Shown here is an 85-nucleotide sequence from Scleropages formosus, a member of the family "mir-184 microRNA precursor family". A search with the family's covariance model found it, with a score of 79 bits. Rfam 15.1 lists 948 matches to the family in 823 species. Pairs were carried over by alignment from the consensus structure, which was predicted with PFOLD.

Nucleotides: 085
Stems, first nucleotide, its partner, number of pairs: 012074009022064006030056002
Number, partner (000 for none) and nucleotide at each position: 001000u002000c003000g004000c005000u006000c007000g008000c009000a010000u011000c012074u013073c014072c015071u016070u017069a018068u019067c020066a021000c022064u023063u024062u025061u026060c027059c028000u029000g030056c031055c032000c033000a034000g035000c036000u037000a038000u039000c040000g041000a042000u043000u044000u045000c046000g047000u048000a049000u050000c051000c052000g053000u054000u055031g056030g057000a058000c059027g060026g061025a062024g063023a064022a065000c066020u067019g068018a069017u070016a071015a072014g073013g074012g075000c076000a077000c078000g079000c080000g081000a082000u083000u084000g085000a

Overview: Its family is annotated with gene silencing by miRNA and RISC complex in the Gene Ontology.